The family of this 308-nucleotide sequence from Hesseltinella vesiculosa is "Nuclear RNase P". A search with the family's covariance model found it, with a score of 138 bits. Rfam's curators write: Ribonuclease P (RNase P) is a ubiquitous endoribonuclease, found in archaea, bacteria and eukarya as well as chloroplasts and mitochondria. Its best characterised activity is the generation of mature 5'-ends of tRNAs by cleaving the 5'-leader elements of precursor-tRNAs. Cellular RNase Ps are ribonucleoproteins. NCBI's taxonomy places the organism under Eukaryota, Opisthokonta, Mucoromycota, Cunninghamellaceae, Hesseltinella. Rfam classes the family as a ribozyme. The family's consensus secondary structure is taken from published work.
RNA sequence: GGAGGUGACAAGCUUAUGUGUACGGGCAAACACACGAAAAAGGAGACUUUGUCUCUUUUUAUUUAUUACCCGUGGGAAGGUCUGAGAAAAGCCAUGAUGCUCUUACCGGGCAACUCGUUAAUCAACGAGUGUAAGUAACCAGAAAAAUACUGGUGGCGAAGUAGGUAUAGCCCAUGAUGAUUUUUUAAUCUAGGCUUCGUCCUUUUCGUCAUCAUUGAAAUUGCUUACAGGUGGAAGAAUUAUGCAGUGCAAUACAUAAGACUGACCCUUUUCGUCAGCAACUCGAUUCAGACUACUCUGUCUCCUCC
Numbered sequence: 001g002g003a004g005g006u007g008a009c010a011a012g013c014u015u016a017u018g019u020g021u022a023c024g025g026g027c028a029a030a031c032a033c034a035c036g037a038a039a040a041a042g043g044a045g046a047c048u049u050u051g052u053c054u055c056u057u058u059u060u061a062u063u064u065a066u067u068a069c070c071c072g073u074g075g076g077a078a079g080g081u082c083u084g085a086g087a088a089a090a091g092c093c094a095u096g097a098u099g100c101u102c103u104u105a106c107c108g109g110g111c112a113a114c115u116c117g118u119u120a121a122u123c124a125a126c127g128a129g130u131g132u133a134a135g136u137a138a139c140c141a142g143a144a145a146a147a148u149a150c151u152g153g154u155g156g157c158g159a160a161g162u163a164g165g166u167a168u169a170g171c172c173c174a175u176g177a178u179g180a181u182u183u184u185u186u187a188a189u190c191u192a193g194g195c196u197u198c199g200u201c202c203u204u205u206u207c208g209u210c211a212u213c214a215u216u217g218a219a220a221u222u223g224c225u226u227a228c229a230g231g232u233g234g235a236a237g238a239a240u241u242a243u244g245c246a247g248u249g250c251a252a253u254a255c256a257u258a259a260g261a262c263u264g265a266c267c268c269u270u271u272u273c274g275u276c277a278g279c280a281a282c283u284c285g286a287u288u289c290a291g292a293c294u295a296c297u298c299u300g301u302c303u304c305c306u307c308c
Stems, first nucleotide, its partner, number of pairs: 001308004008301003013260007022073005037060006082291005092230001098112005113130006131228007151214002262278005